[Rfam]
RNA sequence: GGGGACCUUCGGGGCCCUUUAACAUAGGCGGGUCGGCUUUCUAACAUGGCCCGCCGUCUAGCUAACGGAAGAGAGCAA
Numbered sequence: 001g002g003g004g005a006c007c008u009u010c011g012g013g014g015c016c017c018u019u020u021a022a023c024a025u026a027g028g029c030g031g032g033u034c035g036g037c038u039u040u041c042u043a044a045c046a047u048g049g050c051c052c053g054c055c056g057u058c059u060a061g062c063u064a065a066c067g068g069a070a071g072a073g074a075g076c077a078a
Base pairs, nucleotide, nucleotide: 001018002017003016004015006014007013008012027055028054029053030052031051032050033049034048035047